[Rfam]
RNA sequence: GACCCGGAUAGAGGUGCGGAUUUGAUGAGUACACACAGGCGAGGCCAGCCAGGGCUGCACGAGCGGUGUGAAAAGGCAACUCCGCCGAAGAGAGCGCAGCUGGCAGGGCGGUUCUCUGGUCGCGUGGCCGAACAGGUGCGCGACUGUCAUCAUGUACUUUGAUGGAGAGCUAUCGGCCUU
Numbered sequence: 001g002a003c004c005c006g007g008a009u010a011g012a013g014g015u016g017c018g019g020a021u022u023u024g025a026u027g028a029g030u031a032c033a034c035a036c037a038g039g040c041g042a043g044g045c046c047a048g049c050c051a052g053g054g055c056u057g058c059a060c061g062a063g064c065g066g067u068g069u070g071a072a073a074a075g076g077c078a079a080c081u082c083c084g085c086c087g088a089a090g091a092g093a094g095c096g097c098a099g100c101u102g103g104c105a106g107g108g109c110g111g112u113u114c115u116c117u118g119g120u121c122g123c124g125u126g127g128c129c130g131a132a133c134a135g136g137u138g139c140g141c142g143a144c145u146g147u148c149a150u151c152a153u154g155u156a157c158u159u160u161g162a163u164g165g166a167g168a169g170c171u172a173u174c175g176g177c178c179u180u
Base pairs, nucleotide, nucleotide: 007174008173009172010171011170016085017084018083019082020081022079023078024077032070033069034068035067036066038064040063089117090116091115092114093113094112095111096109097108118145119144120143121142122141123140124139125138126137128135147165148164149163150162151161152160

Description: A member of the RNA family "Lysine riboswitch aptamer" from Neobittarella massiliensis, 180 nucleotides long. About the family: Riboswitches are metabolite binding domains within certain messenger RNAs that serve as precision sensors for their corresponding targets. The base pairs follow the family's consensus structure, which is taken from published work. A search with the family's covariance model found it, with a score of 92 bits. Lineage of the source: Bacteria > Bacillati > Bacillota > Eubacteriales > Neobittarella (ex Bilen et al. 2018).